RNA sequence: GACGACCGGCUGGACACCCACGUGUCCGGCCCACAAGUGGAGGCUCCGCACUCCCACCCUCUCGCCCUCCGGGCGGCGGGUCACCGGUCAGACGGAAGGCGCCCCUGGGGUGUUCUCCGUCCGAUAGCCCCGCGAUCCGCGGCGGUGUUCCGGUAGUACAGGAGCCCCGUCUGUGAUCGUCCGGGGCAUUUUUC
Numbered sequence: 001g002a003c004g005a006c007c008g009g010c011u012g013g014a015c016a017c018c019c020a021c022g023u024g025u026c027c028g029g030c031c032c033a034c035a036a037g038u039g040g041a042g043g044c045u046c047c048g049c050a051c052u053c054c055c056a057c058c059c060u061c062u063c064g065c066c067c068u069c070c071g072g073g074c075g076g077c078g079g080g081u082c083a084c085c086g087g088u089c090a091g092a093c094g095g096a097a098g099g100c101g102c103c104c105c106u107g108g109g110g111u112g113u114u115c116u117c118c119g120u121c122c123g124a125u126a127g128c129c130c131c132g133c134g135a136u137c138c139g140c141g142g143c144g145g146u147g148u149u150c151c152g153g154u155a156g157u158a159c160a161g162g163a164g165c166c167c168c169g170u171c172u173g174u175g176a177u178c179g180u181c182c183g184g185g186g187c188a189u190u191u192u193u194c
Base pairs, nucleotide, nucleotide: 004089005088006087007086008085009084012027013026028082029081030080031079032078037057038056039055040054041052042051062076063075064074065073066072067071091121092120093119094118095117097114099113100112101111102110103109127187128186129185130184131183132182133179134178135177138175139174140173141171142170143169144168145167147165148164149163150162151161
A member of the RNA family "Streptomyces RNA 1601" from Streptomyces albus, 194 nucleotides long. The family's RNA type in Rfam is small RNA. Identified by deep sequencing of transcriptome at the end of exponential growth phase. Appears longer on northern blot than sequencing transcript. Streptomyces specific. On this family, see Vockenhuber et al., RNA Biol 2011: "Deep sequencing-based identification of small non-coding RNAs in Streptomyces coelicolor". The organism belongs to Streptomyces albus subsp. albus, within Bacteria. The base pairs follow the family's consensus structure.